[Rfam]
Nucleotides: 084
Stems, first nucleotide, its partner, number of pairs: 001083007010025003027055005060076005
Number, partner (000 for none) and nucleotide at each position: 001083u002082u003081c004080u005079g006078c007077g008000u009000a010025g011024u012023u013000u014000a015000g016000u017000g018000g019000c020000u021000a022000u023012g024011a025010c026000g027055g028054g029053u030052c031051c032000u033000u034000g035000u036000c037000a038000u039000u040000c041000a042000c043000c044000u045000u046000g047000g048000u049000u050000c051031g052030g053029a054028c055027c056000a057000g058000a059000c060076c061075c062074g063073g064072g065000u066000u067000c068000a069000a070000u071000u072064c073063c074062c075061g076060g077007c078006g079005c080004g081003g082002a083001a084000g
This 84-nucleotide RNA sequence from Malassezia vespertilionis belongs to the Rfam family "tRNA". Lineage of the source: Eukaryota > Opisthokonta > Basidiomycota > Malasseziomycetes > Malassezia. Rfam classes the family as a transfer RNA.